[Rfam]
RNA sequence: UUGUUUCUUGCUUCAACUGUGUUUGGAUGGAACAA
Number, nucleotide and partner (000 for none) at each position: 001u035002u034003g033004u032005u031006u000007c030008u029009u000010g028011c000012u027013u026014c025015a024016a023017c021018u000019g000020u000021g017022u000023u016024u015025g014026g013027a012028u010029g008030g007031a005032a004033c003034a002035a001

A member of the RNA family "Iron response element I" from Chinchilla lanigera, 35 nucleotides long. The match comes from Rfam's covariance-model search (43 bits). Its family is annotated with response to iron ion in the Gene Ontology. Rfam classes the family as a cis-regulatory element. The family's consensus secondary structure is taken from published work.